Shown here is a 175-nucleotide RNA from Pasteurella multocida, a member of the family "Lysine riboswitch aptamer".
Rfam 15.1 lists 3,224 matches to the family in 1,923 species.
Rfam's curators put it in the seed alignment.

RNA sequence: UACUUGUGUAGAGGAGCGAUCACUAUAAGUAUUUUUUCUGAGUGGAUAACGAAGAGGAAAAAGGAAAGGAGUGACCGCCGAAAUCAAUUGAAAGUCAUUUUGAUUGGUUGGUGGCGUAUUCGAAAGGAACGUCAUUGUCAUAGUCUUUUUUAAACUAUGGAGCGCUACUGGUUGG
Numbered sequence: 001u002a003c004u005u006g007u008g009u010a011g012a013g014g015a016g017c018g019a020u021c022a023c024u025a026u027a028a029g030u031a032u033u034u035u036u037u038c039u040g041a042g043u044g045g046a047u048a049a050c051g052a053a054g055a056g057g058a059a060a061a062a063g064g065a066a067a068g069g070a071g072u073g074a075c076c077g078c079c080g081a082a083a084u085c086a087a088u089u090g091a092a093a094g095u096c097a098u099u100u101u102g103a104u105u106g107g108u109u110g111g112u113g114g115c116g117u118a119u120u121c122g123a124a125a126g127g128a129a130c131g132u133c134a135u136u137g138u139c140a141u142a143g144u145c146u147u148u149u150u151u152a153a154a155c156u157a158u159g160g161a162g163c164g165c166u167a168c169u170g171g172u173u174g175g
Base pairs, nucleotide, nucleotide: 008168009167010166011165016078017077018076020074021073022072023071024070032063033062034061035060036059037058038057039056082109083108084107085106086105087104088103089102090101091100092099093098110136111135112134113133114132115131116130117129119127120126138160139159140158141157142156143155144154